The record is a 73-nucleotide RNA from Gordonia asplenii, which matches "hya RNA" in Rfam. The match comes from Rfam's covariance-model search (68 bits). Lineage of the source: Bacteria > Bacillati > Actinomycetota > Mycobacteriales > Gordonia. The family's consensus secondary structure is taken from published work. Rfam classes the family as a cis-regulatory element.
[Rfam]
RNA sequence: AGUGUCACACAAGUAAGCCGAGGGUCGACUCCAGUGGCACAGGGGUCUGGUGCCUGGCCCCGGAAGGCAGUUG
Numbered sequence: 001a002g003u004g005u006c007a008c009a010c011a012a013g014u015a016a017g018c019c020g021a022g023g024g025u026c027g028a029c030u031c032c033a034g035u036g037g038c039a040c041a042g043g044g045g046u047c048u049g050g051u052g053c054c055u056g057g058c059c060c061c062g063g064a065a066g067g068c069a070g071u072u073g
Stems, first nucleotide, its partner, number of pairs: 003039006042061006